[Rfam]
RNA: Lysine riboswitch aptamer
RNA sequence: CGGUGAGGUAGAGGUCGCGGUUGUUAGAAGUAAAUCAGUGGAGACGCAGAGAACGUCAUUGAAGCUGUUGAAAGGAACUACCGCCGAAGUUUGAUUGCUGCUCUGGGCAAUUGGGCUGGGACUGUUGCCGGAAGGUGCAGAACUGUCACAAGUUUAUGAUAAGUAAAUUUGUGAUGAGCUAUCUUCAAA
Numbered sequence: 001c002g003g004u005g006a007g008g009u010a011g012a013g014g015u016c017g018c019g020g021u022u023g024u025u026a027g028a029a030g031u032a033a034a035u036c037a038g039u040g041g042a043g044a045c046g047c048a049g050a051g052a053a054c055g056u057c058a059u060u061g062a063a064g065c066u067g068u069u070g071a072a073a074g075g076a077a078c079u080a081c082c083g084c085c086g087a088a089g090u091u092u093g094a095u096u097g098c099u100g101c102u103c104u105g106g107g108c109a110a111u112u113g114g115g116c117u118g119g120g121a122c123u124g125u126u127g128c129c130g131g132a133a134g135g136u137g138c139a140g141a142a143c144u145g146u147c148a149c150a151a152g153u154u155u156a157u158g159a160u161a162a163g164u165a166a167a168u169u170u171g172u173g174a175u176g177a178g179c180u181a182u183c184u185u186c187a188a189a
Stems, first nucleotide, its partner, number of pairs: 006184006017084005023078003033069002036067004088117012118144002122140004128134001146174010